[Rfam]
RNA sequence: GGAUACGCCCGGCGCCGCAACCUCCUCCCUGCGGUCCGGGCACUGGAUGCGGGCCCUGACCUCCUCCCGAGGGGUCCCAUCGAAACGAAGGCGAUGCGCACCUCCUCCCGCGCAUCGCCUUUUUC
Numbered sequence: 001g002g003a004u005a006c007g008c009c010c011g012g013c014g015c016c017g018c019a020a021c022c023u024c025c026u027c028c029c030u031g032c033g034g035u036c037c038g039g040g041c042a043c044u045g046g047a048u049g050c051g052g053g054c055c056c057u058g059a060c061c062u063c064c065u066c067c068c069g070a071g072g073g074g075u076c077c078c079a080u081c082g083a084a085a086c087g088a089a090g091g092c093g094a095u096g097c098g099c100a101c102c103u104c105c106u107c108c109c110g111c112g113c114a115u116c117g118c119c120u121u122u123u124u125c
Stems, first nucleotide, its partner, number of pairs: 007041003011037002015033001046081004051077006089120011
RNA: Alphaproteobacterial ar14